[Rfam]
RNA sequence: GCUCUUAUGGUGUAAUGGUUAGCACUCUGGACUUUGAAUCCAGCGAUCCGGGUUCAAAUCCCGGUAGGACCU
Numbered sequence: 001g002c003u004c005u006u007a008u009g010g011u012g013u014a015a016u017g018g019u020u021a022g023c024a025c026u027c028u029g030g031a032c033u034u035u036g037a038a039u040c041c042a043g044c045g046a047u048c049c050g051g052g053u054u055c056a057a058a059u060c061c062c063g064g065u066a067g068g069a070c071c072u
Stems, first nucleotide, its partner, number of pairs: 001071001003069005010025004027043005048064005
RNA: tRNA
Organism: Phytophthora boehmeriae